[Rfam]
This 54-nucleotide sequence from Coregonus sp. 'balchen' belongs to the Rfam family "UnaL2 LINE 3' element". The match comes from Rfam's covariance-model search (58 bits). Taxonomically the source falls in Coregonus (Eukaryota, Chordata, Teleostomi, Protacanthopterygii). Pairs were carried over by alignment from the consensus structure, which is taken from published work.
RNA sequence: AUGAAUGCACUUUGUAAGUCGCUCUGGAUCAGAGCGUCUGCUAAAUGACAAUAA
Numbered sequence: 001a002u003g004a005a006u007g008c009a010c011u012u013u014g015u016a017a018g019u020c021g022c023u024c025u026g027g028a029u030c031a032g033a034g035c036g037u038c039u040g041c042u043a044a045a046u047g048a049c050a051a052u053a054a
Stems, first nucleotide, its partner, number of pairs: 013043001014041003020036006